[Rfam]
RNA sequence: CUAAGUUUCCUAGUUCUUAAAACUAGGUGGUGGAGUCCUAGGACCCUCUAAGGAAUUAGUUAUUACCUUAUAAAAAUAACUUGGCGUGCAUGGAA
Numbered sequence: 001c002u003a004a005g006u007u008u009c010c011u012a013g014u015u016c017u018u019a020a021a022a023c024u025a026g027g028u029g030g031u032g033g034a035g036u037c038c039u040a041g042g043a044c045c046c047u048c049u050a051a052g053g054a055a056u057u058a059g060u061u062a063u064u065a066c067c068u069u070a071u072a073a074a075a076a077u078a079a080c081u082u083g084g085c086g087u088g089c090a091u092g093g094a095a
Stems, first nucleotide, its partner, number of pairs: 009027007049070001051068003058081006
A member of the RNA family "wcaG RNA", 95 nucleotides long. Rfam classes the family as a cis-regulatory element.